[Rfam]
Description:
Fluoride riboswitch aptamer (crcB RNA motif): a 62-nucleotide sequence from Acidihalobacter ferrooxydans. A reference for the family is Ren et al. (2012), "Fluoride ion encapsulation by Mg2+ ions and phosphates in a fluoride riboswitch", Nature. The base pairs follow the family's consensus structure, which is taken from published work. The family has 289 seed sequences and 2,293 matches in Rfam 15.1. It scores 41 bits against the family's covariance model.
RNA sequence: UAUAGACAUGGCGCUGGAGUUCGCCACAAACCGCCAUCCCGGCCGAUGACUCCUGAGUUGCG
Numbered sequence: 001u002a003u004a005g006a007c008a009u010g011g012c013g014c015u016g017g018a019g020u021u022c023g024c025c026a027c028a029a030a031c032c033g034c035c036a037u038c039c040c041g042g043c044c045g046a047u048g049a050c051u052c053c054u055g056a057g058u059u060g061c062g
Stems, first nucleotide, its partner, number of pairs: 010025004016053006033043003